[Rfam]
RNA: U2 spliceosomal RNA
Organism: Prunus yedoensis
RNA sequence: CCCACAUCGACAGGUGGAGAAAAGAAUAUGGAAGAUCGAGUGUAGUCUUAUCAGUUUAGUAUCUCGUAUGUGGGCCAUUGGCCCACCUCCUUUAUGAAAUUAAUUUCUUUAGGGGGAGAGCCCACCACAGUAGCUUGCUGCUGGGGUUCUCGCACGUUGCCCAAGUGAUGCACUACUGCAUGGGCCUGGCGUACCCCAU
Dot-bracket structure: ................................................(((.((........)).))).(((((((...))))))).............................((((((((......((((....))))..))))))))..((((((.(((.((...........)).)))...)))))).......